A member of the RNA family "sRNA-Xcc1" from [Actinobacillus] rossii, 86 nucleotides long. It is annotated as a small RNA. The source organism's lineage runs through Bacteria, Pseudomonadota, Gammaproteobacteria, Pasteurellaceae and [Pasteurella] aerogenes-[Pasteurella] mairii-[Actinobacillus] rossii complex. A search with the family's covariance model found it, with a score of 58 bits.
RNA sequence: GAUCGGGUCUAGAGAGCCUAAUACAAUACCGAAAGGAAAUAAGCUCCGCCGACUUUGUACGGUAGUUGACGCCCGAUCAUCCCUAC
Number, nucleotide and partner (000 for none) at each position: 001g078002a077003u076004c075005g074006g073007g072008u071009c000010u000011a000012g000013a000014g046015a045016g044017c043018c000019u041020a040021a000022u000023a000024c000025a000026a000027u000028a000029c036030c035031g000032a000033a000034a000035g030036g029037a000038a000039a000040u020041a019042a000043g017044c016045u015046c014047c000048g063049c062050c061051g060052a000053c000054u000055u000056u000057g000058u000059a000060c051061g050062g049063u048064a000065g000066u000067u000068g000069a000070c000071g008072c007073c006074c005075g004076a003077u002078c001079a000080u000081c000082c000083c000084u000085a000086c000